[Rfam]
Nucleotides: 083
Stems, first nucleotide, its partner, number of pairs: 014045005021083007028040003050072002053069007
Number, partner (000 for none) and nucleotide at each position: 001000a002000u003000a004000a005000c006000g007000u008000c009000u010000c011000u012000g013000a014045g015044g016043a017042u018041c019000a020000a021083g022082g023081u024080a025079g026078a027077a028040g029039c030038g031000u032000u033000c034000a035000c036000g037000u038030c039029g040028c041018g042017a043016u044015c045014c046000c047000u048000g049000u050072c051071a052000a053069g054068u055067a056066a057065u058064a059063c060000u061000u062000g063059g064058u065057a066056u067055u068054a069053c070000c071051u072050g073000c074000a075000a076000a077027u078026u079025c080024u081023a082022c083021c